[Rfam]
RNA: MISL RNA
RNA sequence: GGAUAAUCCUGGGAAACCAGGGAAAGGAUUAUGACAACUGGUGCCAUAAUCCCCUAAACGAACGUAUUAAAAACGUAGACGAAAGGCAUAAUCACCAGUUCCUCUGGCCGGUGUCAUGACCGGUCAGUAUCAUGAAUCAGGGACUAGGAAGCGAGAUACGAUUAGAAACCGUAUACGAGCUAACGUUAGGCAUCUGGGAACGUUUCGAUCCCUUGUGCCAAACGCAGUAACCCAGAGGGUUUUAGCUGCAACUGCAAAUGACCAGAACGCUAUCAUAUUUCUCGGCGAGCCGACCUCGCCAAAAGGCCCGGAUGCAUAAACAACAUCUAGGCGCGCAAAGGAAAUAUAACAGCGGGGAGAGAGCGAACCAGGCAAAGUUCGUAAAACCUCCUCAAACCGGGCGGAGUGAAAAACACUUCACCCUACUGUAAAGCGAUCGCAGCUUGAGAGUUAAGAGGCCAGACCCGCAACGCAGGGCAAACGAUCGGCUAACAACCGGUGCCGUCCUUGUGUAAAAGGUAUAGACGCAAAAAACGCAUUACAGGCGUGUCUACACCUCGUUUAGCGUGCAAUUCUCGGCAGAGAAUUACCGAACUAAGCGAAAAGACCUCACUCAAUAAACUCCAAUCAGUAAUGAUAGGAGCGAUCCCGCUAUGAGAUCGAUAACUUCGCAUGCCGCGGAGAGUGGCGUCGGGGAACAUACGGCCCGCGAAAGCGAGAGCGCCCAAUGUAUGUACAGGGAAAGAUUGCGUGGCGAGCAAC
Numbered sequence: 001g002g003a004u005a006a007u008c009c010u011g012g013g014a015a016a017c018c019a020g021g022g023a024a025a026g027g028a029u030u031a032u033g034a035c036a037a038c039u040g041g042u043g044c045c046a047u048a049a050u051c052c053c054c055u056a057a058a059c060g061a062a063c064g065u066a067u068u069a070a071a072a073a074c075g076u077a078g079a080c081g082a083a084a085g086g087c088a089u090a091a092u093c094a095c096c097a098g099u100u101c102c103u104c105u106g107g108c109c110g111g112u113g114u115c116a117u118g119a120c121c122g123g124u125c126a127g128u129a130u131c132a133u134g135a136a137u138c139a140g141g142g143a144c145u146a147g148g149a150a151g152c153g154a155g156a157u158a159c160g161a162u163u164a165g166a167a168a169c170c171g172u173a174u175a176c177g178a179g180c181u182a183a184c185g186u187u188a189g190g191c192a193u194c195u196g197g198g199a200a201c202g203u204u205u206c207g208a209u210c211c212c213u214u215g216u217g218c219c220a221a222a223c224g225c226a227g228u229a230a231c232c233c234a235g236a237g238g239g240u241u242u243u244a245g246c247u248g249c250a251a252c253u254g255c256a257a258a259u260g261a262c263c264a265g266a267a268c269g270c271u272a273u274c275a276u277a278u279u280u281c282u283c284g285g286c287g288a289g290c291c292g293a294c295c296u297c298g299c300c301a302a303a304a305g306g307c308c309c310g311g312a313u314g315c316a317u318a319a320a321c322a323a324c325a326u327c328u329a330g331g332c333g334c335g336c337a338a339a340g341g342a343a344a345u346a347u348a349a350c351a352g353c354g355g356g357g358a359g360a361g362a363g364c365g366a367a368c369c370a371g372g373c374a375a376a377g378u379u380c381g382u383a384a385a386a387c388c389u390c391c392u393c394a395a396a397c398c399g400g401g402c403g404g405a406g407u408g409a410a411a412a413a414c415a416c417u418u419c420a421c422c423c424u425a426c427u428g429u430a431a432a433g434c435g436a437u438c439g440c441a442g443c444u445u446g447a448g449a450g451u452u453a454a455g456a457g458g459c460c461a462g463a464c465c466c467g468c469a470a471c472g473c474a475g476g477g478c479a480a481a482c483g484a485u486c487g488g489c490u491a492a493c494a495a496c497c498g499g500u501g502c503c504g505u506c507c508u509u510g511u512g513u514a515a516a517a518g519g520u521a522u523a524g525a526c527g528c529a530a531a532a533a534a535c536g537c538a539u540u541a542c543a544g545g546c547g548u549g550u551c552u553a554c555a556c557c558u559c560g561u562u563u564a565g566c567g568u569g570c571a572a573u574u575c576u577c578g579g580c581a582g583a584g585a586a587u588u589a590c591c592g593a594a595c596u597a598a599g600c601g602a603a604a605a606g607a608c609c610u611c612a613c614u615c616a617a618u619a620a621a622c623u624c625c626a627a628u629c630a631g632u633a634a635u636g637a638u639a640g641g642a643g644c645g646a647u648c649c650c651g652c653u654a655u656g657a658g659a660u661c662g663a664u665a666a667c668u669u670c671g672c673a674u675g676c677c678g679c680g681g682a683g684a685g686u687g688g689c690g691u692c693g694g695g696g697a698a699c700a701u702a703c704g705g706c707c708c709g710c711g712a713a714a715g716c717g718a719g720a721g722c723g724c725c726c727a728a729u730g731u732a733u734g735u736a737c738a739g740g741g742a743a744a745g746a747u748u749g750c751g752u753g754g755c756g757a758g759c760a761a762c
Stems, first nucleotide, its partner, number of pairs: 008021005026052008035043002062076004097145007108123005114135005150181003155176001157173003165206005190218004196212004224255004229241004244444006284300006306332003310328005354393006363382006405417004448615003455611004471512007484500005520555001522553007560600006568592002571588007622643004627638004644662005651689004667683006698735007705722002708717003747761003
Dot-bracket structure: .......(((((....)))))....((((((((.((.....)).)))))))).........((((.......))))....................(((((((....(((((.[[[[[))))).......]]]]]...)))))))....(((..(.(((.....[[[[[.)))..)..)))........((((..((((..]]]]]..))))..)))).....[[[[.((((.....))))..((((((..]]]]............................((((((.....)))))).....(((.(((((.........))))).))).....................((((((...((((((........)))))).....))))))...........((((.....)))).....................))))))...(((....((((............(((((((......(((((.......))))).....))))))).......(.(((((((..................))))))).)....((((((..((.(((((((....)))))))..))..)))))).......)))).)))......((((.((((....)))).))))(((((..[[[[...)))))....((((((.....))))))..]]]]........(((((((((.(((....)))...))......)))))))...........(((.........))).